The family of this 178-nucleotide RNA sequence from Zarconia navalis is "Antisense RNA which regulates isiA expression". A reference for the family is Duhring et al. (2006), "An internal antisense RNA regulates expression of the photosynthesis gene isiA", Proc Natl Acad Sci U S A. The match comes from Rfam's covariance-model search (102 bits).
[Rfam]
RNA sequence: GGUAGCCGUAGAUAACGAAGGGGUCGAGGGUCGGUGCGGUGACGAGGCGAACGUCGCCAAUGGCAGAGUCGUACAAUCCGCCCCAAAACAUCGCUUUACCCACCAGAAGCAGUGCCCCAAAUCCCAGGAACAGCAGGUGGUGUCCCAAAAUUAGUCCCAACUGUUGGGGAUCGUCCCA
Numbered sequence: 001g002g003u004a005g006c007c008g009u010a011g012a013u014a015a016c017g018a019a020g021g022g023g024u025c026g027a028g029g030g031u032c033g034g035u036g037c038g039g040u041g042a043c044g045a046g047g048c049g050a051a052c053g054u055c056g057c058c059a060a061u062g063g064c065a066g067a068g069u070c071g072u073a074c075a076a077u078c079c080g081c082c083c084c085a086a087a088a089c090a091u092c093g094c095u096u097u098a099c100c101c102a103c104c105a106g107a108a109g110c111a112g113u114g115c116c117c118c119a120a121a122u123c124c125c126a127g128g129a130a131c132a133g134c135a136g137g138u139g140g141u142g143u144c145c146c147a148a149a150a151u152u153a154g155u156c157c158c159a160a161c162u163g164u165u166g167g168g169g170a171u172c173g174u175c176c177c178a
Stems, first nucleotide, its partner, number of pairs: 136175006144169003148165001